[Rfam]
RNA sequence: AGUGCACCUAUAGCAGCCAUAGCAGAAGCGCUCGCAUUGAGGCCCUGUUAGAUUCUAAUGAAUUUGCAAAUUCUGCU
Numbered sequence: 001a002g003u004g005c006a007c008c009u010a011u012a013g014c015a016g017c018c019a020u021a022g023c024a025g026a027a028g029c030g031c032u033c034g035c036a037u038u039g040a041g042g043c044c045c046u047g048u049u050a051g052a053u054u055c056u057a058a059u060g061a062a063u064u065u066g067c068a069a070a071u072u073c074u075g076c077u
Stems, first nucleotide, its partner, number of pairs: 013045001016043003021077007029039002049066007
RNA: Mammalian CPEB3 ribozyme
Organism: Alligator sinensis